[Rfam]
RNA: Xanthine riboswitch aptamer (NMT1 RNA)
RNA sequence: CCGGCGAGUAGAAGCGUUCAGCACGGCGGGGCCAGCCUCCGCCGCCGCCCGGAAAUUGCUCGAUCC
Numbered sequence: 001c002c003g004g005c006g007a008g009u010a011g012a013a014g015c016g017u018u019c020a021g022c023a024c025g026g027c028g029g030g031g032c033c034a035g036c037c038u039c040c041g042c043c044g045c046c047g048c049c050c051g052g053a054a055a056u057u058g059c060u061c062g063a064u065c066c
Stems, first nucleotide, its partner, number of pairs: 005062006015051001018053002021048002024044008